Rfam assigns this 110-nucleotide RNA sequence from Microthlaspi erraticum to the family "mir-172 microRNA precursor family".
RNA sequence: UUGUUUGUAGGUGCAGCACCAUUAAGAUUCACAUGGAAUUUGAAAAACAUUAGGGUUUUGAAUUUUUGAUAUGCAUAUGAGAAUCUUGAUGAUGCUGCAUCAACAAUCGA
Number, nucleotide and partner (000 for none) at each position: 001u000002u000003g000004u000005u000006u000007g000008u000009a000010g101011g100012u099013g098014c097015a096016g095017c094018a093019c000020c091021a090022u089023u088024a087025a086026g085027a084028u083029u082030c081031a000032c079033a078034u000035g000036g000037a000038a000039u000040u000041u000042g000043a000044a000045a000046a000047a000048c000049a000050u000051u000052a000053g000054g000055g000056u000057u000058u000059u000060g000061a000062a000063u000064u000065u000066u000067u000068g000069a000070u000071a000072u000073g000074c000075a000076u000077a000078u033079g032080a000081g030082a029083a028084u027085c026086u025087u024088g023089a022090u021091g020092a000093u018094g017095c016096u015097g014098c013099a012100u011101c010102a000103a000104c000105a000106a000107u000108c000109g000110a000
Its family is annotated with miRNA-mediated post-transcriptional gene silencing and RISC complex in the Gene Ontology. The literature on the family includes a 2004 paper in Mol Cell by Jones-Rhoades and Bartel, "Computational Identification of Plant MicroRNAs and Their Targets, Including a Stress-Induced miRNA". About the family: mir-172 has been experimentally verified in Arabidopsis thaliana. This family is thought to target mRNAs coding for APETALA2-like transcription factors. The mature sequence is excised from the 3' arm of the hairpin.